[Rfam]
Nucleotides: 128
Base pairs, nucleotide, nucleotide: 013116014115017112018111019110020109023106024105025104026103027102028101029100030099031098032097034095035094036093037092038091040089
Number, partner (000 for none) and nucleotide at each position: 001000a002000u003000c004000g005000c006000c007000g008000c009000c010000g011000c012000u013116u014115c015000g016000g017112a018111u019110u020109c021000g022000c023106u024105u025104g026103g027102u028101g029100c030099a031098g032097g033000u034095c035094g036093g037092g038091a039000a040089c041000c042000g043000a044000a045000c046000c047000a048000a049000a050000u051000c052000g053000a054000u055000c056000g057000g058000a059000u060000c061000u062000c063000c064000g065000u066000u067000u068000c069000g070000c071000u072000c073000g074000c075000u076000g077000a078000u079000g080000g081000a082000u083000c084000c085000g086000c087000c088000u089040g090000a091038u092037c093036c094035c095034g096000c097032c098031u099030u100029g101028c102027a103026u104025c105024a106023a107000c108000u109020g110019a111018a112017u113000c114000c115014g116013a117000g118000c119000c120000g121000g122000u123000u124000c125000g126000c127000g128000u